Description: The family of this 69-nucleotide sequence from Citricoccus sp. SGAir0253 is "Actino-pnp RNA". It scores 55 bits against the family's covariance model. By type it is a cis-regulatory element. Pairs were carried over by alignment from the consensus structure, which is taken from published work.
[Rfam]
RNA sequence: CGCGGUCCUCGACAGUGGCCUCCGGAAGGCGCCCCGCGCGGCGUCCGGGGGCUUCGAUCGAAGACCGGG
Numbered sequence: 001c002g003c004g005g006u007c008c009u010c011g012a013c014a015g016u017g018g019c020c021u022c023c024g025g026a027a028g029g030c031g032c033c034c035c036g037c038g039c040g041g042c043g044u045c046c047g048g049g050g051g052c053u054u055c056g057a058u059c060g061a062a063g064a065c066c067g068g069g
Stems, first nucleotide, its partner, number of pairs: 001069001003067005009061004017053010030043003